[Rfam]
Nucleotides: 149
Stems, first nucleotide, its partner, number of pairs: 001069001004066005012059003018053003022041005089143004103137001105135001109133003114128002117125001
Number, partner (000 for none) and nucleotide at each position: 001069u002000u003000c004066c005065c006064c007063u008062g009000g010000c011000a012059u013058g014057a015000g016000c017000a018053a019052a020051g021000a022041a023040a024039c025038a026037c027000c028000u029000u030000g031000u032000u033000g034000g035000u036000a037026g038025u039024g040023u041022u042000g043000a044000u045000a046000g047000u048000g049000u050000u051020c052019u053018u054000a055000c056000a057014u058013c059012a060000g061000u062008c063007a064006g065005g066004g067000c068000c069001a070000g071000a072000g073000c074000a075000g076000a077000u078000g079000g080000c081000a082000g083000u084000c085000c086000u087000u088000u089143g090142u091141u092140c093000a094000u095000c096000c097000u098000a099000g100000c101000u102000u103137g104000a105135u106000g107000c108000c109133u110132g111131g112000c113000u114128u115127g116000g117125u118000g119000g120000u121000c122000a123000a124000a125117g126000c127115u128114g129000u130000c131111u132110u133109a134000u135105g136000c137103c138000u139000a140092g141091g142090a143089c144000u145000c146000a147000u148000a149000a